A member of the RNA family "Small nucleolar RNA psi28S-1192" from Drosophila rhopaloa, 139 nucleotides long. Its family is annotated with nucleolus and RNA processing in the Gene Ontology.
[Rfam]
RNA sequence: AAUAGGUCCAGUCUAAUUCUGCAUCAUGGUUUAUUUAUGUAGACUCGCUUUUGGACCAGAUUAAUCCUUAUCCUUUAUUAUCCUUGUGCUUGUAAUAGCAUUUCAGUUCAAUGCACACGAGAAACGUAAAAGAACAAUA
Numbered sequence: 001a002a003u004a005g006g007u008c009c010a011g012u013c014u015a016a017u018u019c020u021g022c023a024u025c026a027u028g029g030u031u032u033a034u035u036u037a038u039g040u041a042g043a044c045u046c047g048c049u050u051u052u053g054g055a056c057c058a059g060a061u062u063a064a065u066c067c068u069u070a071u072c073c074u075u076u077a078u079u080a081u082c083c084u085u086g087u088g089c090u091u092g093u094a095a096u097a098g099c100a101u102u103u104c105a106g107u108u109c110a111a112u113g114c115a116c117a118c119g120a121g122a123a124a125c126g127u128a129a130a131a132g133a134a135c136a137a138u139a
Stems, first nucleotide, its partner, number of pairs: 005057006019042006026035001027033002071133002074130005083121006

The family's consensus secondary structure was predicted with ILM. By type it is an H/ACA-box small nucleolar RNA.